[Rfam]
RNA: Small nucleolar RNA SNORA70
RNA sequence: CUGCAGACAGUUAAGCCAACUGAGUUCCUUUCCUCAGGGAGGCCCAGUGUACAAUGGCUGCCCACAGCAGCUUCCUUGGUAGCGUACUCAGCCUGUUUCUUGUAUGGGUUGCUCUAAGGGACCUUAGAGACAGGC
Numbered sequence: 001c002u003g004c005a006g007a008c009a010g011u012u013a014a015g016c017c018a019a020c021u022g023a024g025u026u027c028c029u030u031u032c033c034u035c036a037g038g039g040a041g042g043c044c045c046a047g048u049g050u051a052c053a054a055u056g057g058c059u060g061c062c063c064a065c066a067g068c069a070g071c072u073u074c075c076u077u078g079g080u081a082g083c084g085u086a087c088u089c090a091g092c093c094u095g096u097u098u099c100u101u102g103u104a105u106g107g108g109u110u111g112c113u114c115u116a117a118g119g120g121a122c123c124u125u126a127g128a129g130a131c132a133g134g135c
Stems, first nucleotide, its partner, number of pairs: 002053002005050001019048004025042002028039001078123003089111006
Dot-bracket structure: .((.(.............((((..((.(..........).))..)))).).))........................(((........((((((...........)))))).........)))............